Shown here is a 111-nucleotide RNA sequence from Trifolium subterraneum, a member of the family "MIR5225 microRNA precursor family".
RNA sequence: UUGAGUGACUUCAGUCGCAGGAGAGAUGACACUUUCUACUAUUAAUUGAAUAUUUGUAUAGUCAAUUUUAGUGAUAGUUGUCAUCUUUCCUCGGCUGAAGCCUCUUAACUA
Numbered sequence: 001u002u003g004a005g006u007g008a009c010u011u012c013a014g015u016c017g018c019a020g021g022a023g024a025g026a027u028g029a030c031a032c033u034u035u036c037u038a039c040u041a042u043u044a045a046u047u048g049a050a051u052a053u054u055u056g057u058a059u060a061g062u063c064a065a066u067u068u069u070a071g072u073g074a075u076a077g078u079u080g081u082c083a084u085c086u087u088u089c090c091u092c093g094g095c096u097g098a099a100g101c102c103u104c105u106u107a108a109c110u111a
Stems, first nucleotide, its partner, number of pairs: 005103001007101001009100004014095004019091003023087007